[Rfam]
RNA sequence: GGUAAGAUGGCUGAGUGUUGAAGCGUUAGGCUGUAGUCCUUUUCACAGAGGUUUGAUUCCUCUUCUUAUCG
Number, nucleotide and partner (000 for none) at each position: 001g070002g069003u068004a067005a066006g065007a064008u000009g000010g024011c023012u022013g000014a000015g000016u000017g000018u000019u000020g000021a000022a012023g011024c010025g000026u000027u000028a040029g039030g038031c000032u000033g000034u000035a000036g000037u000038c030039c029040u028041u000042u000043u000044c000045a000046c000047a063048g062049a061050g060051g059052u000053u000054u000055g000056a000057u000058u000059c051060c050061u049062c048063u047064u007065c006066u005067u004068a003069u002070c001071g000
A member of the RNA family "tRNA" from Rostratula benghalensis, 71 nucleotides long. The match comes from Rfam's covariance-model search (49 bits). The source organism's lineage runs through Eukaryota, Vertebrata, Gnathostomata, Teleostomi and Rostratula. By type it is a transfer RNA.